This 124-nucleotide sequence from Rhipicephalus sanguineus belongs to the Rfam family "U4atac minor spliceosomal RNA". The family is grouped with related families in Rfam's "U4 clan". A reference for the family is Lorkovic et al. (2005), "Evolutionary conservation of minor U12-type spliceosome between plants and humans", RNA. The family's consensus secondary structure is taken from published work. It scores 71 bits against the family's covariance model. NCBI's taxonomy places the organism under Eukaryota, Protostomia, Parasitiformes, Rhipicephalinae, Rhipicephalus. About the family: U4atac is an essential component of the minor U12-type spliceosome complex which is required for removal of the rarer class of eukaryotic introns (AT-AC, U12-type). The family has 61 seed sequences and 1,648 matches in Rfam 15.1. Its family is annotated with mRNA 5'-splice site recognition, U4atac snRNP and pre-mRNA 5'-splice site binding in the Gene Ontology.
RNA sequence: ACCGUCUUUAUCACGGGGAGCUUGGUUGUGCCAAGGAUCGUUUAGUGAGGCCAGCCCUGCUGACACCGUGUAACAACACGCACGCGCCGCGCGAUUUAUUUGCGUUGGUGCAAUUUUUGGACCC
Numbered sequence: 001a002c003c004g005u006c007u008u009u010a011u012c013a014c015g016g017g018g019a020g021c022u023u024g025g026u027u028g029u030g031c032c033a034a035g036g037a038u039c040g041u042u043u044a045g046u047g048a049g050g051c052c053a054g055c056c057c058u059g060c061u062g063a064c065a066c067c068g069u070g071u072a073a074c075a076a077c078a079c080g081c082a083c084g085c086g087c088c089g090c091g092c093g094a095u096u097u098a099u100u101u102g103c104g105u106u107g108g109u110g111c112a113a114u115u116u117u118u119g120g121a122c123c124c
Stems, first nucleotide, its partner, number of pairs: 005019005020060002025055004030051003039045001084111006090104005